This 68-nucleotide RNA sequence from Lactuca saligna belongs to the Rfam family "Plastid-clpP 5UTR RNA". From the family's description: Plastid clpP is a non-coding RNA (ncRNA) recognised in plastids. It was found in the prime untranslated region (5UTR) of a protease complex subunit (clpP) in plastids, suggesting a posible cis-regulatory function. The match comes from Rfam's covariance-model search (65 bits). The literature on the family includes a 2023 paper in Plant Commun by Richter et al., "Retrograde signaling in plants: A critical review focusing on the GUN pathway and beyond". The organism belongs to Lactuca, within Eukaryota.
RNA sequence: AAUUUUGUUCGUAGGAAAAAAAGAAACAUAUAUAUGCUAUACUUAAUAAGUAUCAAUACGCAAGUAGG
Numbered sequence: 001a002a003u004u005u006u007g008u009u010c011g012u013a014g015g016a017a018a019a020a021a022a023g024a025a026a027c028a029u030a031u032a033u034a035u036g037c038u039a040u041a042c043u044u045a046a047u048a049a050g051u052a053u054c055a056a057u058a059c060g061c062a063a064g065u066a067g068g
Base pairs, nucleotide, nucleotide: 003021004020006018008017009016010015042067043066050059051058052057